[Rfam]
RNA sequence: UCCCCAAGUCUAAUGAUGAUACCCAAUUUCCUCUGAGCCACUGUUAUUCUGGCUUCAAAGUAAAUGCUCUGAUGAGAUGGGG
Numbered sequence: 001u002c003c004c005c006a007a008g009u010c011u012a013a014u015g016a017u018g019a020u021a022c023c024c025a026a027u028u029u030c031c032u033c034u035g036a037g038c039c040a041c042u043g044u045u046a047u048u049c050u051g052g053c054u055u056c057a058a059a060g061u062a063a064a065u066g067c068u069c070u071g072a073u074g075a076g077a078u079g080g081g082g
Base pairs, nucleotide, nucleotide: 002082003081004080005079009077010076
Dot-bracket structure: .((((...((.................................................................)).))))
The family of this 82-nucleotide RNA sequence from Sorex araneus is "Small nucleolar RNA SNORD105".
The literature on the family includes a 2003 paper in Nucleic Acids Res by Vitali et al., "Identification of 13 novel human modification guide RNAs".
Rfam describes the family as follows. U105 belongs to the C/D family of snoRNAs. It is encoded in an intron of the Suppressor of SWI4 1 homolog (Ssf-1) (Peter Pan homolog) gene. and is predicted to guide 2'O-ribose methylation of residue U799 of the small 18S rRNA subunit.